[Rfam]
RNA sequence: GAGACCGGAGGUCCCCGCCCGACAGCGCAGUGCGCCCUCGGGCGUCAAUUGUG
Numbered sequence: 001g002a003g004a005c006c007g008g009a010g011g012u013c014c015c016c017g018c019c020c021g022a023c024a025g026c027g028c029a030g031u032g033c034g035c036c037c038u039c040g041g042g043c044g045u046c047a048a049u050u051g052u053g
Stems, first nucleotide, its partner, number of pairs: 016044007025035004